Purine riboswitch aptamer: a 102-nucleotide RNA sequence from Psychrilyobacter sp. S5.
[Rfam]
RNA sequence: GGAUAUAAAAAUAAGUAAUUCCAUAUAAUCUUUUAAAUAUGCUAAAAGAGUAUCUACUAGGAGAGCGAAAAUCUUCUUUCUAUGGGCGCACGUGUGUGCCCU
Number, nucleotide and partner (000 for none) at each position: 001g000002g000003a000004u000005a000006u000007a000008a000009a000010a000011a000012u000013a000014a000015g000016u000017a000018a000019u000020u086021c085022c084023a083024u082025a081026u000027a000028a000029u049030c048031u047032u046033u045034u044035a043036a000037a000038u000039a000040u000041g000042c000043u035044a034045a033046a032047a031048g030049a029050g000051u000052a000053u000054c000055u000056a000057c000058u000059a077060g076061g075062a074063g073064a072065g000066c000067g000068a000069a000070a000071a000072u064073c063074u062075u061076c060077u059078u000079u000080c000081u025082a024083u023084g022085g021086g020087c000088g000089c000090a000091c000092g000093u000094g000095u000096g000097u000098g000099c000100c000101c000102u000